[Rfam]
RNA sequence: ACAACGGCUCUUUUAAGAGCCACAUACAAAACCCUAACUGAGCAA
Numbered sequence: 001a002c003a004a005c006g007g008c009u010c011u012u013u014u015a016a017g018a019g020c021c022a023c024a025u026a027c028a029a030a031a032c033c034c035u036a037a038c039u040g041a042g043c044a045a
Stems, first nucleotide, its partner, number of pairs: 006021006

This 45-nucleotide RNA sequence from Perca flavescens belongs to the Rfam family "Histone 3' UTR stem-loop". The family's consensus secondary structure is taken from published work. A reference for the family is Tan et al. (2013), "Structure of histone mRNA stem-loop, human stem-loop binding protein, and 3'hExo ternary complex", Science. It scores 34 bits against the family's covariance model. Rfam's curators write: The mRNAs of metazoan histone genes lack a poly-A tail. 3' end processing occurs at a site between a highly conserved stem-loop (modelled by this family) and a purine rich region around 20 nts downstream (the histone downstream element, or HDE). The family has 50 seed sequences and 44,596 matches in Rfam 15.1.